[Rfam]
t44 RNA: an 88-nucleotide RNA sequence from Pseudomonas oryzae. Rfam classes the family as a small RNA. Lineage of the source: Bacteria > Pseudomonadota > Pseudomonadales > Pseudomonadaceae > Pseudomonas. The base pairs follow the family's consensus structure, which was predicted with LocARNA. About the family: This family consists of a number of bacterial RNA genes of between 135 and 170 bases in length. The t44 gene has been identified in several species of enteric bacteria but homologs have also been identified in Pseudomonas and Coxiella species. The t44 gene is found between the map and rpsB genes in all species in the full alignment apart from Shigella flexneri.
RNA sequence: CCGGAAAGGCAUCGAAACCACACACGCAUCGACACAACUAUCCUGGGUGCCCGCGAGGGUUGGAUAUUGGGGUGCGUGGAGGCCCAAC
Numbered sequence: 001c002c003g004g005a006a007a008g009g010c011a012u013c014g015a016a017a018c019c020a021c022a023c024a025c026g027c028a029u030c031g032a033c034a035c036a037a038c039u040a041u042c043c044u045g046g047g048u049g050c051c052c053g054c055g056a057g058g059g060u061u062g063g064a065u066a067u068u069g070g071g072g073u074g075c076g077u078g079g080a081g082g083c084c085c086a087a088c
Stems, first nucleotide, its partner, number of pairs: 023078008035069003039066005049060004